[Rfam]
RNA sequence: GUAGAGUAUUCAGAAUUGCAUGAAGCAAUACCAACCGAGUGUAGUCACCGCGGUGGUAAAAUAAUACGGGUGCGAAGCCAAAAUAAACGUUAUAG
Numbered sequence: 001g002u003a004g005a006g007u008a009u010u011c012a013g014a015a016u017u018g019c020a021u022g023a024a025g026c027a028a029u030a031c032c033a034a035c036c037g038a039g040u041g042u043a044g045u046c047a048c049c050g051c052g053g054u055g056g057u058a059a060a061a062u063a064a065u066a067c068g069g070g071u072g073c074g075a076a077g078c079c080a081a082a083a084u085a086a087a088c089g090u091u092a093u094a095g
Base pairs, nucleotide, nucleotide: 006067007066008065009064010063015029016028017027018026019025030057031056032055035053036052037051039048040047043090069079070078071077

SAM-I/IV (S-adenosyl methionine) riboswitch aptamer: a 95-nucleotide RNA from Sphingobacterium paucimobilis. Its Rfam clan is "SAM clan". Gene Ontology terms of the family: S-adenosylmethionine metabolic process and regulation of gene expression. The base pairs follow the family's consensus structure, which is taken from published work. A reference for the family is Weinberg et al. (2008), "The aptamer core of SAM-IV riboswitches mimics the ligand-binding site of SAM-I riboswitches", RNA. NCBI's taxonomy places the organism under Bacteria, Pseudomonadati, Bacteroidota, Sphingobacteriaceae, Sphingobacterium paucimobilis.